[Rfam]
RNA sequence: AUAUAGUUUUGCCAUAAGCGAGGUAUAGAGUUCCUACGUUUUAGUUAAUUUUGUAGGAACUUAAUACCGUGCUCUUGGAGAAUUAUA
Number, nucleotide and partner (000 for none) at each position: 001a000002u000003a000004u000005a000006g000007u000008u000009u000010u000011g000012c078013c077014a076015u000016a000017a073018g072019c071020g070021a000022g068023g067024u066025a065026u064027a000028g062029a061030g060031u059032u058033c057034c056035u055036a054037c053038g000039u000040u000041u000042u000043a000044g000045u000046u000047a000048a000049u000050u000051u000052u000053g037054u036055a035056g034057g033058a032059a031060c030061u029062u028063a000064a026065u025066a024067c023068c022069g000070u020071g019072c018073u017074c000075u000076u014077g013078g012079a000080g000081a000082a000083u000084u000085a000086u000087a000
The family of this 87-nucleotide sequence from Megaselia scalaris is "mir-276 microRNA precursor family". Rfam 15.1 lists 200 matches to the family in 170 species. A reference for the family is Li et al. (2009), "Direct sequencing and expression analysis of a large number of miRNAs in Aedes aegypti and a multi-species survey of novel mosquito miRNAs", BMC Genomics. Rfam links the family to the GO terms RISC complex and miRNA-mediated post-transcriptional gene silencing.